This 103-nucleotide RNA from Sporolactobacillus inulinus belongs to the Rfam family "S10-Clostridia ribosomal protein leader".
It scores 35 bits against the family's covariance model.
The literature on the family includes a 2020 paper in BMC Microbiol by Eckert and Weinberg, "Discovery of 20 novel ribosomal leader candidates in bacteria and archaea".
Lineage of the source: Bacteria > Bacilli > Caryophanales > Sporolactobacillus > Sporolactobacillus inulinus.
[Rfam]
RNA sequence: UUUUGGCAAUGAUACGGAAGGUUGCAGAUACACCCGGCUCCUUUGCCAAGGCGGGCGGUCUGGAAAUUUUCGUGGAGCAAGUCUGUUUUUCAAAAAUGGACGA
Numbered sequence: 001u002u003u004u005g006g007c008a009a010u011g012a013u014a015c016g017g018a019a020g021g022u023u024g025c026a027g028a029u030a031c032a033c034c035c036g037g038c039u040c041c042u043u044u045g046c047c048a049a050g051g052c053g054g055g056c057g058g059u060c061u062g063g064a065a066a067u068u069u070u071c072g073u074g075g076a077g078c079a080a081g082u083c084u085g086u087u088u089u090u091c092a093a094a095a096a097u098g099g100a101c102g103a
Stems, first nucleotide, its partner, number of pairs: 014073003018070004025062005082103002089100003